This 248-nucleotide sequence from Paenibacillus xylanivorans belongs to the Rfam family "BsrG". A search with the family's covariance model found it, with a score of 84 bits. From the family's description: bsrE, bsrG and bsrH pair through intermolecular interactions with antisense sRNAs. They form type I toxin/antitoxin system that includes an mRNA encoding for a short, toxic peptide (bsrE, bsrG and bsrH) and an antitoxin that is comprised of an antisense RNA. bsrG encodes a 39-amino-acid toxin, and the 180 nucleotide antisense sRNA called SR4 acts as the antitoxin (they overlap by 123 nucleotides). SR4 interaction with the 3'UTR of bsrG RNA promotes bsrG degradation and inhibits its translation. BsrG interferes with cell envelope biosynthesis, causes membrane invaginations and delocalisation of the cell wall synthesis and initiates autolysis. bsrE RNA encodes 30 amino-acid toxin peptide. Its antitoxin gene, SR5 overlaps by 112 nucleotides at the 3' end of bsrE. SR5 also overlaps bsrG from nucleotide 163 to 52 (Rfam overlap check). The antitoxin SR5 promotes bsrE degradation but unlike SR4 it does not directly inhibits toxin mRNA translation. For this family Rfam cites "BsrG/SR4 from Bacillus subtilis--the first temperature-dependent type I toxin-antitoxin system" (Jahn et al., Mol Microbiol, 2012). The base pairs follow the family's consensus structure, which was predicted with WAR.

[Rfam]
RNA sequence: GCAAUGGAAAGGCUUAUAUGGGCGGUCGGCUAAUCUCCCGGAAGGGAGGUGAUGCCUUGUGACAGUAUUUGAAGCGAUUAUGCUAAUGCUUACCUUCGGUUCGCUGAUUGUAGCGCUGCUGUCCAAUAAAGACAAAUAGACCGCCCUCUGGCUAAGGGAUGCGGUCUAUUUAGUCGGUACCCUGCUUUGAAGCCCACCGCCCUUAAAAGCGGCUAUUGCAUCAGAGAGUCGUGUUAGCGCACGGCUCU
Numbered sequence: 001g002c003a004a005u006g007g008a009a010a011g012g013c014u015u016a017u018a019u020g021g022g023c024g025g026u027c028g029g030c031u032a033a034u035c036u037c038c039c040g041g042a043a044g045g046g047a048g049g050u051g052a053u054g055c056c057u058u059g060u061g062a063c064a065g066u067a068u069u070u071g072a073a074g075c076g077a078u079u080a081u082g083c084u085a086a087u088g089c090u091u092a093c094c095u096u097c098g099g100u101u102c103g104c105u106g107a108u109u110g111u112a113g114c115g116c117u118g119c120u121g122u123c124c125a126a127u128a129a130a131g132a133c134a135a136a137u138a139g140a141c142c143g144c145c146c147u148c149u150g151g152c153u154a155a156g157g158g159a160u161g162c163g164g165u166c167u168a169u170u171u172a173g174u175c176g177g178u179a180c181c182c183u184g185c186u187u188u189g190a191a192g193c194c195c196a197c198c199g200c201c202c203u204u205a206a207a208a209g210c211g212g213c214u215a216u217u218g219c220a221u222c223a224g225a226g227a228g229u230c231g232u233g234u235u236a237g238c239g240c241a242c243g244g245c246u247c248u
Stems, first nucleotide, its partner, number of pairs: 001219005007213001011194005020146003024141001026139001031052001033050001035048005061123007074089003099114003152173003197212004225248010